[Rfam]
About this RNA
This 410-nucleotide sequence from Desulfosoma caldarium belongs to the Rfam family "Bacterial RNase P class A". Rfam classes the family as a ribozyme.
RNA sequence: GGAGGCGUCCACCCGAUCGCCGGUUCCCUUUGGGAACGGGAGGAAAGUCCGGGCUCCGCAGGGCAGGGUGCUGGGUAACGCCCAGUCUCGGUGACGAGCAGGACAGUGCCACAGAAAACAAACCGCCGAGCACUCACUUUUCCGUCGAGCCAUUCCGCGCCGGCUCGACGGCGAAGUGAGUGCUCGGUAAGGGUGAAACGGUGAGGUAAGAGCUCACCAGUCCCGGUGGUGACACCGGGAGCUCGGUAAACCCCACCCGGAGCAAGGCCAAGUAGGGGAGCGUUGAAGGGUUGCCCGCCCGAGGCUCCCGGGUCGGCCGCUUGAGCCUCAUGGUAACAUGAGGCCUAGAGGAAUGAUCGGGACCUUUCGUCAGGAAAGGCACAGAACCCGGCUUAUGGGCUCCUCCACAU
Numbered sequence: 001g002g003a004g005g006c007g008u009c010c011a012c013c014c015g016a017u018c019g020c021c022g023g024u025u026c027c028c029u030u031u032g033g034g035a036a037c038g039g040g041a042g043g044a045a046a047g048u049c050c051g052g053g054c055u056c057c058g059c060a061g062g063g064c065a066g067g068g069u070g071c072u073g074g075g076u077a078a079c080g081c082c083c084a085g086u087c088u089c090g091g092u093g094a095c096g097a098g099c100a101g102g103a104c105a106g107u108g109c110c111a112c113a114g115a116a117a118a119c120a121a122a123c124c125g126c127c128g129a130g131c132a133c134u135c136a137c138u139u140u141u142c143c144g145u146c147g148a149g150c151c152a153u154u155c156c157g158c159g160c161c162g163g164c165u166c167g168a169c170g171g172c173g174a175a176g177u178g179a180g181u182g183c184u185c186g187g188u189a190a191g192g193g194u195g196a197a198a199c200g201g202u203g204a205g206g207u208a209a210g211a212g213c214u215c216a217c218c219a220g221u222c223c224c225g226g227u228g229g230u231g232a233c234a235c236c237g238g239g240a241g242c243u244c245g246g247u248a249a250a251c252c253c254c255a256c257c258c259g260g261a262g263c264a265a266g267g268c269c270a271a272g273u274a275g276g277g278g279a280g281c282g283u284u285g286a287a288g289g290g291u292u293g294c295c296c297g298c299c300c301g302a303g304g305c306u307c308c309c310g311g312g313u314c315g316g317c318c319g320c321u322u323g324a325g326c327c328u329c330a331u332g333g334u335a336a337c338a339u340g341a342g343g344c345c346u347a348g349a350g351g352a353a354u355g356a357u358c359g360g361g362a363c364c365u366u367u368c369g370u371c372a373g374g375a376a377a378g379g380c381a382c383a384g385a386a387c388c389c390g391g392c393u394u395a396u397g398g399g400c401u402c403c404u405c406c407a408c409a410u
Stems, first nucleotide, its partner, number of pairs: 001406005007400005012361007020040002023037006045394003049391005054262004061296004066258005071085005086100001087098004101253002106251002108247003123192002125188016200218006220242001221240008266318004276309006288300004325344008